[Rfam]
RNA sequence: UUUUUAUGGAAUCCAGAAACCAUAUAAAAAAACGGGGCAAAACCGAAAAGCCAUACGAGUAGGAAACUA
Numbered sequence: 001u002u003u004u005u006a007u008g009g010a011a012u013c014c015a016g017a018a019a020c021c022a023u024a025u026a027a028a029a030a031a032a033c034g035g036g037g038c039a040a041a042a043c044c045g046a047a048a049a050g051c052c053a054u055a056c057g058a059g060u061a062g063g064a065a066a067c068u069a
Base pairs, nucleotide, nucleotide: 006023007022008021009020036052037051038050043063044062
RNA: DUF805 RNA